[Rfam]
RNA sequence: UGUCCGAUGCCACGUCGACGAUAGCUUUUUGCUGGCAGUGAUCGUCGAUGCUACAUUGGACAUAAACAGAUGUUUGUGUUUCGCUUUUCUGAUAGGAACCUGUUGAUCAAUCUUGUGAUCUACGGGGCCAUUUCGGCGAUUACAUUU
Numbered sequence: 001u002g003u004c005c006g007a008u009g010c011c012a013c014g015u016c017g018a019c020g021a022u023a024g025c026u027u028u029u030u031g032c033u034g035g036c037a038g039u040g041a042u043c044g045u046c047g048a049u050g051c052u053a054c055a056u057u058g059g060a061c062a063u064a065a066a067c068a069g070a071u072g073u074u075u076g077u078g079u080u081u082c083g084c085u086u087u088u089c090u091g092a093u094a095g096g097a098a099c100c101u102g103u104u105g106a107u108c109a110a111u112c113u114u115g116u117g118a119u120c121u122a123c124g125g126g127g128c129c130a131u132u133u134c135g136g137c138g139a140u141u142a143c144a145u146u147u
Base pairs, nucleotide, nucleotide: 002061003060004059005058006057007056008055009054013050014049015048016047017046018045020043021042022041024036025035026034081139082138083137084136085135095129096128100125101124102123105120106119107118108117
The family of this 147-nucleotide sequence from Brassica cretica is "Small nucleolar RNA snoR2/U65". The match comes from Rfam's covariance-model search (124 bits). The base pairs follow the family's consensus structure, which was predicted with WAR. Its family is annotated with nucleolus and RNA processing in the Gene Ontology.